The record is a 235-nucleotide RNA from Medicago truncatula, which matches "MIR2655 microRNA precursor family" in Rfam. Rfam 15.1 lists 892 matches to the family in 5 species.

[Rfam]
RNA sequence: CCCAUAAGUAAUGAACUGUCCGUUUAGGUCCCUUAACUUUAUUUAAAGUAUCGGUUUGAUCCUUUCUGUUAAUUUAAUUCAAAAAAACGUUAACUUUAGGGACCAAACUAAUACUAAUUAAAUAAGAUAAGGGACCAAAAUUUAACAUUUUUUUGAAUUAAAUUAACAGAAAGGACCAAACUGAUACUUUCAAUAAAGUUAAGGGACCUAAACGCACCUUUUAUUACUUAUGAGA
Number, nucleotide and partner (000 for none) at each position: 001c000002c000003c232004a231005u230006a229007a228008g227009u000010a000011a000012u000013g000014a000015a000016c000017u000018g000019u000020c000021c000022g000023u212024u211025u210026a000027g208028g207029u206030c000031c204032c203033u202034u201035a200036a199037c198038u197039u196040u195041a194042u193043u192044u000045a190046a189047a188048g000049u000050a000051u000052c000053g000054g000055u000056u000057u000058g000059a000060u000061c000062c000063u000064u000065u000066c000067u000068g000069u000070u000071a000072a000073u000074u000075u000076a000077a000078u000079u000080c000081a000082a000083a000084a000085a000086a000087a000088c000089g000090u000091u000092a000093a000094c000095u000096u000097u000098a000099g000100g000101g000102a000103c000104c000105a000106a000107a000108c000109u000110a000111a000112u000113a000114c000115u000116a000117a000118u000119u000120a000121a000122a000123u000124a000125a000126g000127a000128u000129a000130a000131g000132g000133g000134a000135c000136c000137a000138a000139a000140a000141u000142u000143u000144a000145a000146c000147a000148u000149u000150u000151u000152u000153u000154u000155g000156a000157a000158u000159u000160a000161a000162a000163u000164u000165a000166a000167c000168a000169g000170a000171a000172a000173g000174g000175a000176c000177c000178a000179a000180a000181c000182u000183g000184a000185u000186a000187c000188u047189u046190u045191c000192a043193a042194u041195a040196a039197a038198g037199u036200u035201a034202a033203g032204g031205g000206a029207c028208c027209u000210a025211a024212a023213c000214g000215c000216a000217c000218c000219u000220u000221u000222u000223a000224u000225u000226a000227c008228u007229u006230a005231u004232g003233a000234g000235a000